[Rfam]
RNA sequence: GCCGGGCUCAUCAACGAGAGCCUGUAACCAAAGUUGGGGCAACAAAGUGGUGGGACAUUGGUUCGGCCCAUUGUGUCGGGCCCGGUGUAGCUUUCUUCUGGCCUGCCCAGUCCAAGCCGAGAGUUGGGCCAUGUGACUUGAGCGAAGGCCCAAGUUUCGUGGCCCCUAGAGUGGAGGGUACAGCGUGAGGCUGGCUUCACAGAGCAGCGCAAACCUCCCGCUCCCGGCGGUGGAAGGAUAACAGGCUUGUGCUACUCGGAUCCAACAUGGGCACAAUGAGCCGUUCUCAAUUGAACAACCACUUUU
Numbered sequence: 001g002c003c004g005g006g007c008u009c010a011u012c013a014a015c016g017a018g019a020g021c022c023u024g025u026a027a028c029c030a031a032a033g034u035u036g037g038g039g040c041a042a043c044a045a046a047g048u049g050g051u052g053g054g055a056c057a058u059u060g061g062u063u064c065g066g067c068c069c070a071u072u073g074u075g076u077c078g079g080g081c082c083c084g085g086u087g088u089a090g091c092u093u094u095c096u097u098c099u100g101g102c103c104u105g106c107c108c109a110g111u112c113c114a115a116g117c118c119g120a121g122a123g124u125u126g127g128g129c130c131a132u133g134u135g136a137c138u139u140g141a142g143c144g145a146a147g148g149c150c151c152a153a154g155u156u157u158c159g160u161g162g163c164c165c166c167u168a169g170a171g172u173g174g175a176g177g178g179u180a181c182a183g184c185g186u187g188a189g190g191c192u193g194g195c196u197u198c199a200c201a202g203a204g205c206a207g208c209g210c211a212a213a214c215c216u217c218c219c220g221c222u223c224c225c226g227g228c229g230g231u232g233g234a235a236g237g238a239u240a241a242c243a244g245g246c247u248u249g250u251g252c253u254a255c256u257c258g259g260a261u262c263c264a265a266c267a268u269g270g271g272c273a274c275a276a277u278g279a280g281c282c283g284u285u286c287u288c289a290a291u292u293g294a295a296c297a298a299c300c301a302c303u304u305u306u
Stems, first nucleotide, its partner, number of pairs: 001040003004023006011016001028037003044305008053296001056293002058290003061286001064283003069278009078263003082259004087255004092251001098249001100247006107237002111234004116228004121223004126165008135156006142149002166171001173218005183210004191202003
Source information:
The family of this 306-nucleotide sequence from Morus notabilis is "Plant signal recognition particle RNA". Rfam 15.1 lists 4,988 matches to the family in 266 species. Pairs were carried over by alignment from the consensus structure, which is taken from published work. By type it is a non-coding RNA gene. Rfam links the family to the GO terms SRP-dependent cotranslational protein targeting to membrane, signal sequence recognition and signal recognition particle, endoplasmic reticulum targeting. A search with the family's covariance model found it, with a score of 267 bits. Lineage of the source: Eukaryota > Spermatophyta > Gunneridae > Moraceae > Morus.